[Rfam]
RNA sequence: UACUUAUGUAGAGAGGUGGAGGGACUGGCCCUAUGAAGCCCGGCAGCGGAUCUGCUCACCCAUAGUGGGAAGUAGAUGCUGUGCCAAUUCCAGCAGGAGAAUUCCUGACAGAUAAGGA
Numbered sequence: 001u002a003c004u005u006a007u008g009u010a011g012a013g014a015g016g017u018g019g020a021g022g023g024a025c026u027g028g029c030c031c032u033a034u035g036a037a038g039c040c041c042g043g044c045a046g047c048g049g050a051u052c053u054g055c056u057c058a059c060c061c062a063u064a065g066u067g068g069g070a071a072g073u074a075g076a077u078g079c080u081g082u083g084c085c086a087a088u089u090c091c092a093g094c095a096g097g098a099g100a101a102u103u104c105c106u107g108a109c110a111g112a113u114a115a116g117g118a
Stems, first nucleotide, its partner, number of pairs: 001118001003116005013041001015040003021031003025093004042085004047081002050077007089110001094107005